[Rfam]
This 427-nucleotide sequence from Sulfitobacter guttiformis belongs to the Rfam family "Bacterial RNase P class A". Gene Ontology terms of the family: ribonuclease P activity, tRNA processing and dimeric ribonuclease P complex. A reference for the family is Frank and Pace (1998), "Ribonuclease P: unity and diversity in a tRNA processing ribozyme", Annu Rev Biochem. A search with the family's covariance model found it, with a score of 294 bits.
RNA sequence: GCGGAAGGCUGGAUGACUGCUGUACCCUUCGCGGGGUAGGGAGGAAAGUCCGGACUCCAAUAAGAAACGGUGCCGGGUAACGCCCGGGCGGGGCAACCCGACGGAAAGCGCCACAGAAAAUAGACCGCCUGUCAGUCCAGAGCUUGCUCCGGGUCCCUGUCAGGUAAGGGUGAAACGGUGGGGUAAGAGCCCACCGCGCGGCUGGUAACAGCGGCGGCAUGGCAAGCCCCACUUGGAGCAACGCCAAAUAGGGACCGCGUGCCGUAUCGGCCUUUCGGGGCAGAUCGGCGGAGCCUCUUAUGCUCCAGCAGGUCCGGGUUGGCGGCUGUAGCUGUGUCGGCAACGGCAUGGUCAGAGGAAUGGUCAUCUAUGACGUAUCGCUUGCGGUAUGUCGGGACAAAAUCCGGCUUACAGGCCUUCCGCGCAA
Numbered sequence: 001g002c003g004g005a006a007g008g009c010u011g012g013a014u015g016a017c018u019g020c021u022g023u024a025c026c027c028u029u030c031g032c033g034g035g036g037u038a039g040g041g042a043g044g045a046a047a048g049u050c051c052g053g054a055c056u057c058c059a060a061u062a063a064g065a066a067a068c069g070g071u072g073c074c075g076g077g078u079a080a081c082g083c084c085c086g087g088g089c090g091g092g093g094c095a096a097c098c099c100g101a102c103g104g105a106a107a108g109c110g111c112c113a114c115a116g117a118a119a120a121u122a123g124a125c126c127g128c129c130u131g132u133c134a135g136u137c138c139a140g141a142g143c144u145u146g147c148u149c150c151g152g153g154u155c156c157c158u159g160u161c162a163g164g165u166a167a168g169g170g171u172g173a174a175a176c177g178g179u180g181g182g183g184u185a186a187g188a189g190c191c192c193a194c195c196g197c198g199c200g201g202c203u204g205g206u207a208a209c210a211g212c213g214g215c216g217g218c219a220u221g222g223c224a225a226g227c228c229c230c231a232c233u234u235g236g237a238g239c240a241a242c243g244c245c246a247a248a249u250a251g252g253g254a255c256c257g258c259g260u261g262c263c264g265u266a267u268c269g270g271c272c273u274u275u276c277g278g279g280g281c282a283g284a285u286c287g288g289c290g291g292a293g294c295c296u297c298u299u300a301u302g303c304u305c306c307a308g309c310a311g312g313u314c315c316g317g318g319u320u321g322g323c324g325g326c327u328g329u330a331g332c333u334g335u336g337u338c339g340g341c342a343a344c345g346g347c348a349u350g351g352u353c354a355g356a357g358g359a360a361u362g363g364u365c366a367u368c369u370a371u372g373a374c375g376u377a378u379c380g381c382u383u384g385c386g387g388u389a390u391g392u393c394g395g396g397a398c399a400a401a402a403u404c405c406g407g408c409u410u411a412c413a414g415g416c417c418u419u420c421c422g423c424g425c426a427a
Base pairs, nucleotide, nucleotide: 001423002422003421004420005419006418007417008416009415010414011412012368013367014366015365016364017363018362020041021040023038024037025036026035027034028033046410047409048408050407051406052405053404054403055238056237057236058235063299064298066296069233070232071231072230073087074086075085076084077083088102089100090099091098092097103229104228108227109226110223111222112221125169126168127165128164129163130162131161133159134158135157177195178194179193180192181191182190196218197216198215199214201212202211203210204209242324243323244322245321252315253314254313255312256311290306291305292304293303294302332351333350334349335348336347337346338345339344